RAGATH-18 RNA: a 79-nucleotide sequence. It is annotated as a small RNA.
[Rfam]
RNA sequence: CUUGUGGACGGUUAUAUCACAUGGGAGUAGAUUUUAUAUUGGAAGAUAUGAAACCAAACCAGACAGGAAGAAGCAAGAA
Numbered sequence: 001c002u003u004g005u006g007g008a009c010g011g012u013u014a015u016a017u018c019a020c021a022u023g024g025g026a027g028u029a030g031a032u033u034u035u036a037u038a039u040u041g042g043a044a045g046a047u048a049u050g051a052a053a054c055c056a057a058a059c060c061a062g063a064c065a066g067g068a069a070g071a072a073g074c075a076a077g078a079a
Stems, first nucleotide, its partner, number of pairs: 001077005009066001011064003022061003030054001032052003